RNA: Enterococcus sRNA B11
Nucleotides: 184
Stems, first nucleotide, its partner, number of pairs: 001137008009020001011018002021037003052123001054121004059115002061075005078091002081088002093107001095105004150179005
Number, partner (000 for none) and nucleotide at each position: 001137g002136g003135c004134a005133a006132c007131u008130g009020c010000c011018u012017c013000g014000u015000u016000u017012g018011g019000a020009g021037g022036u023035g024000a025000u026000c027000c028000u029000a030000u031000g032000c033000u034000g035023c036022g037021u038000g039000a040000u041000u042000u043000c044000u045000u046000c047000u048000u049000c050000c051000a052123g053000a054121u055120u056119a057118u058000c059115g060114c061075c062074c063073c064072g065071c066000u067000u068000c069000u070000u071065g072064u073063g074062g075061g076000u077000g078091u079090g080000a081088u082087g083000g084000u085000c086000a087082c088081a089000c090079u091078g092000g093107u094000c095105g096104a097103u098102c099000a100000u101000u102098g103097g104096u105095u106000a107093g108000a109000u110000g111000g112000u113000g114060g115059c116000c117000a118057g119056u120055a121054a122000g123052c124000c125000a126000a127000c128000u129000g130008c131007a132006g133005u134004u135003g136002c137001u138000u139000a140000c141000u142000a143000a144000c145000c146000c147000a148000c149000a150179c151178g152177c153176c154175u155000g156000a157000u158000u159000a160000g161000g162000c163000c164000c165000g166000c167000u168000u169000c170000u171000a172000a173000a174000c175154a176153g177152g178151u179150g180000a181000a182000a183000a184000a